RNA: SAM riboswitch aptamer (S box leader)
Organism: Anoxybacter fermentans
RNA sequence: UAAACAUCAAGAGAGGUGGAGGGACUGGCCCUAUGAAACCCGGCAACCAGCACAUAUGUGUAUGGUGCCAAAUCCUGCAAGGUAUCUCGAUAUCCUGCAAGGUAUCUUGAGAGAUGUUUA
Numbered sequence: 001u002a003a004a005c006a007u008c009a010a011g012a013g014a015g016g017u018g019g020a021g022g023g024a025c026u027g028g029c030c031c032u033a034u035g036a037a038a039c040c041c042g043g044c045a046a047c048c049a050g051c052a053c054a055u056a057u058g059u060g061u062a063u064g065g066u067g068c069c070a071a072a073u074c075c076u077g078c079a080a081g082g083u084a085u086c087u088c089g090a091u092a093u094c095c096u097g098c099a100a101g102g103u104a105u106c107u108u109g110a111g112a113g114a115u116g117u118u119u120a
Stems, first nucleotide, its partner, number of pairs: 001120008013041001015040003021031003025077001027075002042069004047065002050061004073112001078109010